Rfam assigns this 115-nucleotide sequence from Halalkalibacter hemicellulosilyticus to the family "TPP riboswitch aptamer (THI element)". The base pairs follow the family's consensus structure, which is taken from published work. The match comes from Rfam's covariance-model search (81 bits). For this family Rfam cites "Comparative genomics of thiamin biosynthesis in procaryotes. New genes and regulatory mechanisms" (Rodionov et al., J Biol Chem, 2002).

RNA sequence: AUAUUUAACUAGGGGAGUCCAAUGAGUUGGGCUGAGAGGGGAACGCACUGAAGUUCCUUGACCCUUGGGACCUGAUCUGGAUCAUGCCAGCGUAGGGAAGUUAGUUGUGUGCGUA
Numbered sequence: 001a002u003a004u005u006u007a008a009c010u011a012g013g014g015g016a017g018u019c020c021a022a023u024g025a026g027u028u029g030g031g032c033u034g035a036g037a038g039g040g041g042a043a044c045g046c047a048c049u050g051a052a053g054u055u056c057c058u059u060g061a062c063c064c065u066u067g068g069g070a071c072c073u074g075a076u077c078u079g080g081a082u083c084a085u086g087c088c089a090g091c092g093u094a095g096g097g098a099a100g101u102u103a104g105u106u107g108u109g110u111g112c113g114u115a
Base pairs, nucleotide, nucleotide: 006103007102008101009100010099011065012064013063014062016059017032018031019030020029021028039058040057041056042055043054071096072095073094074093077090078089079088080087
Dot-bracket structure: .....(((((((((.((((((......)))))......(((((..........))))))..)))).....((((..((((......))))..))))..)))))............